[Rfam]
RNA: sRNA-Xcc1
Organism: Marinomonas sp. MWYL1
RNA sequence: GUCGGGAGGGCGAGGAAUAAAAUACCCGCAAGGGAAAUAACUCCGCCUGGACUUGUGCAGGUUUCGAACCUCCCGGCACCCUUCU
Numbered sequence: 001g002u003c004g005g006g007a008g009g010g011c012g013a014g015g016a017a018u019a020a021a022a023u024a025c026c027c028g029c030a031a032g033g034g035a036a037a038u039a040a041c042u043c044c045g046c047c048u049g050g051a052c053u054u055g056u057g058c059a060g061g062u063u064u065c066g067a068a069c070c071u072c073c074c075g076g077c078a079c080c081c082u083u084c085u
Stems, first nucleotide, its partner, number of pairs: 001077009014043002016038001025034003045062005